Annotation
Shown here is a 241-nucleotide sequence, a member of the family "RT-16 RNA". The family's RNA type in Rfam is small RNA.
Nucleotides: 241
Base pairs, nucleotide, nucleotide: 001051002050003049004048005047006046007045008044013039068233069232070231071230072229073228074227075226076225077224087179117172118171119170120169121168124165125164126163127162128161133157134156
Number, partner (000 for none) and nucleotide at each position: 001051u002050u003049u004048u005047c006046u007045u008044g009000a010000a011000a012000a013039u014000a015000u016000u017000g018000c019000c020000c021000a022000g023000a024000a025000g026000u027000a028000u029000u030000u031000c032000u033000u034000g035000c036000a037000u038000g039013a040000g041000c042000a043000a044008c045007a046006a047005g048004a049003a050002a051001a052000a053000c054000u055000a056000a057000a058000u059000g060000g061000a062000c063000u064000a065000c066000a067000c068233g069232u070231c071230a072229a073228u074227u075226a076225a077224u078000u079000a080000g081000u082000a083000c084000a085000u086000u087179a088000u089000u090000a091000a092000g093000a094000u095000u096000u097000a098000u099000u100000u101000u102000a103000a104000g105000u106000c107000a108000u109000g110000a111000a112000a113000u114000u115000c116000a117172a118171c119170u120169u121168c122000a123000a124165c125164a126163a127162u128161u129000a130000g131000u132000a133157g134156c135000a136000a137000u138000g139000a140000c141000u142000c143000g144000c145000u146000c147000g148000a149000a150000u151000g152000a153000g154000g155000a156134g157133u158000g159000a160000a161128a162127a163126u164125u165124g166000a167000a168121g169120a170119a171118g172117u173000g174000g175000u176000g177000c178000u179087u180000c181000c182000g183000u184000a185000g186000g187000a188000g189000a190000a191000a192000u193000c194000c195000u196000u197000a198000g199000a200000c201000u202000u203000g204000g205000a206000g207000a208000c209000u210000c211000u212000u213000u214000u215000u216000u217000a218000a219000g220000a221000g222000a223000g224077a225076u226075u227074a228073g229072u230071u231070g232069g233068c234000u235000a236000c237000a238000a239000g240000a241000g